[Rfam]
RNA sequence: CCUAUGGAGUAUCACAUCAAAUGUGAGUAGCUGUUACCACUGCAAAAGCAGAUACGAUGAAAUAGGAA
Numbered sequence: 001c002c003u004a005u006g007g008a009g010u011a012u013c014a015c016a017u018c019a020a021a022u023g024u025g026a027g028u029a030g031c032u033g034u035u036a037c038c039a040c041u042g043c044a045a046a047a048g049c050a051g052a053u054a055c056g057a058u059g060a061a062a063u064a065g066g067a068a
Base pairs, nucleotide, nucleotide: 001066002065003064004063005062009055010054011053012052013051022050023049024048030043031042033040034039
Rfam assigns this 68-nucleotide sequence to the family "RAGATH-18 RNA".
Rfam classes the family as a small RNA.
It is one of the family's seed sequences.
Actinobacteria, Firmicutes, Fusobacteria, Thermotogae (1 example).